RNA sequence: AGCGAGUAAGACAGACUCUUCAGUCUGAUUGAGUGGAAGCAAGCACUAACCUAGAUAGCAUGUGGGUUG
Numbered sequence: 001a002g003c004g005a006g007u008a009a010g011a012c013a014g015a016c017u018c019u020u021c022a023g024u025c026u027g028a029u030u031g032a033g034u035g036g037a038a039g040c041a042a043g044c045a046c047u048a049a050c051c052u053a054g055a056u057a058g059c060a061u062g063u064g065g066g067u068u069g
Base pairs, nucleotide, nucleotide: 011034012033015030017028018027048068049067050066051065052064053063
Shown here is a 69-nucleotide RNA sequence from Tombusvirus moroccoense, a member of the family "Tombus virus defective interfering (DI) RNA region 3". The sequence is in the family's curated seed alignment. From the family's description: This family represents region 3 of the defective interfering (DI) RNA element of the Tombus viruses and is found in the 3' UTR. This family has been found to enhance DI RNA accumulation by approximately 10-fold as well as mediating viral replication.